[Rfam]
RNA: Small nucleolar RNA Z279/snoR105/snoR108
Organism: Cajanus cajan
Nucleotides: 103
Stems, first nucleotide, its partner, number of pairs: 001103004014093004023040005042082008060074001062072002
Number, partner (000 for none) and nucleotide at each position: 001103g002102g003101g004100a005000u006000g007000u008000g009000a010000u011000g012000a013000g014093u015092g016091g017090u018000c019000a020000a021000a022000a023040c024039u025038c026037g027036c028000a029000a030000g031000u032000g033000u034000a035000u036027g037026c038025g039024a040023g041000a042082g043081g044080g045079g046078u047077g048076u049075c050000c051000g052000c053000u054000c055000c056000c057000g058000c059000c060074u061000g062072g063071u064000u065000a066000c067000g068000a069000c070000a071063a072062u073000g074060g075049g076048g077047c078046a079045c080044u081043c082042u083000c084000c085000c086000u087000u088000u089000a090017a091016c092015c093014a094000a095000u096000c097000u098000g099000a100004u101003c102002c103001c